[Rfam]
RNA sequence: GGCCCGGGAUGAGCGCUGGCAUGUAUUAUCUGAGCGGAGCUGAUGUCUCUCACGCUUUAGCUCUAGAAUUACUCUGAGGCCCG
Numbered sequence: 001g002g003c004c005c006g007g008g009a010u011g012a013g014c015g016c017u018g019g020c021a022u023g024u025a026u027u028a029u030c031u032g033a034g035c036g037g038a039g040c041u042g043a044u045g046u047c048u049c050u051c052a053c054g055c056u057u058u059a060g061c062u063c064u065a066g067a068a069u070u071a072c073u074c075u076g077a078g079g080c081c082c083g
Stems, first nucleotide, its partner, number of pairs: 001081004